Source information
The record is an 82-nucleotide RNA from Dreissena polymorpha, which matches "mir-46/mir-47/mir-281 microRNA precursor family" in Rfam. A reference for the family is Lau et al. (2001), "An abundant class of tiny RNAs with probable regulatory roles in Caenorhabditis elegans", Science. Gene Ontology terms of the family: RISC complex and miRNA-mediated post-transcriptional gene silencing. NCBI's taxonomy places the organism under Eukaryota, Eumetazoa, Autobranchia, Imparidentia, Dreissena.

RNA sequence: AUGACCAGGUGCUGAAGGGAGCAAUUGCUGACGGUCUGAACUGUAGAACUGUCAUGGAGUUGCUCUCUUUACUAGCCUGGUU
Numbered sequence: 001a002u003g004a005c006c007a008g009g010u011g012c013u014g015a016a017g018g019g020a021g022c023a024a025u026u027g028c029u030g031a032c033g034g035u036c037u038g039a040a041c042u043g044u045a046g047a048a049c050u051g052u053c054a055u056g057g058a059g060u061u062g063c064u065c066u067c068u069u070u071a072c073u074a075g076c077c078u079g080g081u082u
Stems, first nucleotide, its partner, number of pairs: 014070005020064003025058001026056002030053003034049002